Shown here is an 80-nucleotide sequence from Acanthosepion pharaonis, a member of the family "Mammalian CPEB3 ribozyme". The organism belongs to Acanthosepion, within Eukaryota.
RNA sequence: AUUGCCUUGCUGGGGACCAUUGAAGGAGUGCUCACAUUGCGGUCCCCGUCAGAUGAGUUUUCUCAUUUGCCAAUCCUUCC
Numbered sequence: 001a002u003u004g005c006c007u008u009g010c011u012g013g014g015g016a017c018c019a020u021u022g023a024a025g026g027a028g029u030g031c032u033c034a035c036a037u038u039g040c041g042g043u044c045c046c047c048g049u050c051a052g053a054u055g056a057g058u059u060u061u062c063u064c065a066u067u068u069g070c071c072a073a074u075c076c077u078u079c080c
Stems, first nucleotide, its partner, number of pairs: 013046006022079006028040003050069007